Group II catalytic intron D1-D4-1: a 95-nucleotide RNA sequence from Chthoniobacter flavus. For this family Rfam cites "Control of branch-site choice by a group II intron" (Chu et al., EMBO J, 2001).
[Rfam]
RNA sequence: UUACCCGGGGAGAACUCUGCGGUGAGAGCCGCGGAGUAGUCAGCCGAAGCCGUAGUAGCGAAGAGGCCCUGCGAAAGCCGGGAGGAGCGAAGGGC
Number, nucleotide and partner (000 for none) at each position: 001u026002u025003a000004c000005c022006c021007g020008g000009g018010g017011a016012g000013a000014a000015c000016u011017c010018u009019g000020c007021g006022g005023u000024g000025a002026g001027a000028g000029c000030c000031g000032c000033g000034g000035a000036g000037u000038a000039g000040u047041c046042a000043g000044c000045c000046g041047a040048a000049g095050c094051c093052g000053u000054a000055g000056u000057a000058g088059c087060g000061a000062a000063g000064a000065g000066g000067c082068c081069c080070u000071g000072c000073g000074a000075a000076a000077g000078c000079c000080g069081g068082g067083a000084g000085g000086a000087g059088c058089g000090a000091a000092g000093g051094g050095c049